[Rfam]
RNA: c-di-GMP-I-GGC riboswitch aptamer
Organism: Paenibacillus sp. OAS669
RNA sequence: CACGAAAAAGGCAAACUUCUCGAAAGAGGGGGACGCAAAGCUUCGGGCCUAAGGAUUUUGAUCUACGGCAGCCGGGCCACCGAAA
Numbered sequence: 001c002a003c004g005a006a007a008a009a010g011g012c013a014a015a016c017u018u019c020u021c022g023a024a025a026g027a028g029g030g031g032g033a034c035g036c037a038a039a040g041c042u043u044c045g046g047g048c049c050u051a052a053g054g055a056u057u058u059u060g061a062u063c064u065a066c067g068g069c070a071g072c073c074g075g076g077c078c079a080c081c082g083a084a085a
Stems, first nucleotide, its partner, number of pairs: 003082002011036002016031006034071001040077003044074003047069003